[Rfam]
RNA sequence: UCCGGGGGAAGCUCACCACCGAGGCCACCCACUGGGUGUACGUCACCCAUCGCUCCGCCUCGGGGAAGGUCUGAGGGAAGGGCCACCGGCGGCUCUAGCAGAGCCCCGCCCGCGAGGGGGCGGGUGAGCCACCAGCAAGGGGGGGCGCCGCGUAUCACGGGCCGGCCUGGGCAGGAGAAGCCGUUGGGCGGAGUACGGAGGGGGCCGCCGCCUCCCCCGCACGUAAACCCCGGCGGAUGCUCGUGGCCCCGCGGUGCUUUGGGACAGACUCACGGCCGGCAAGCGUUGAGUUCAAUGGGUGAGGUGGGGCACCGCCCUACAACCCAAUUCAGACUACUCUCUCCCGGA
Numbered sequence: 001u002c003c004g005g006g007g008g009a010a011g012c013u014c015a016c017c018a019c020c021g022a023g024g025c026c027a028c029c030c031a032c033u034g035g036g037u038g039u040a041c042g043u044c045a046c047c048c049a050u051c052g053c054u055c056c057g058c059c060u061c062g063g064g065g066a067a068g069g070u071c072u073g074a075g076g077g078a079a080g081g082g083c084c085a086c087c088g089g090c091g092g093c094u095c096u097a098g099c100a101g102a103g104c105c106c107c108g109c110c111c112g113c114g115a116g117g118g119g120g121c122g123g124g125u126g127a128g129c130c131a132c133c134a135g136c137a138a139g140g141g142g143g144g145g146c147g148c149c150g151c152g153u154a155u156c157a158c159g160g161g162c163c164g165g166c167c168u169g170g171g172c173a174g175g176a177g178a179a180g181c182c183g184u185u186g187g188g189c190g191g192a193g194u195a196c197g198g199a200g201g202g203g204g205c206c207g208c209c210g211c212c213u214c215c216c217c218c219g220c221a222c223g224u225a226a227a228c229c230c231c232g233g234c235g236g237a238u239g240c241u242c243g244u245g246g247c248c249c250c251g252c253g254g255u256g257c258u259u260u261g262g263g264a265c266a267g268a269c270u271c272a273c274g275g276c277c278g279g280c281a282a283g284c285g286u287u288g289a290g291u292u293c294a295a296u297g298g299g300u301g302a303g304g305u306g307g308g309g310c311a312c313c314g315c316c317c318u319a320c321a322a323c324c325c326a327a328u329u330c331a332g333a334c335u336a337c338u339c340u341c342u343c344c345c346g347g348a
Stems, first nucleotide, its partner, number of pairs: 001348004007342003012303006020062005034048005071332005081277004091105005106123006124273005130267001144258009304320007
Dot-bracket structure: ((((..(((..((((((..(((((.........(((((.....))))).........)))))........[[[[[.....((((......(((((.....)))))((((((......))))))(((((.(.............(((((((((.................................................................................................)))))))))........).)))))))))....................))))))(((((((...))))))).......]]]]].......)))..))))

Shown here is a 348-nucleotide sequence from Ibidorhyncha struthersii, a member of the family "Nuclear RNase P". About the family: Ribonuclease P (RNase P) is a ubiquitous endoribonuclease, found in archaea, bacteria and eukarya as well as chloroplasts and mitochondria. Its best characterised activity is the generation of mature 5'-ends of tRNAs by cleaving the 5'-leader elements of precursor-tRNAs. Cellular RNase Ps are ribonucleoproteins. RNA from bacterial RNase Ps retains its catalytic activity in the absence of the protein subunit, i.e. it is a ribozyme. NCBI's taxonomy places the organism under Eukaryota, Chordata, Craniata, Sarcopterygii, Ibidorhyncha. The family's RNA type in Rfam is ribozyme.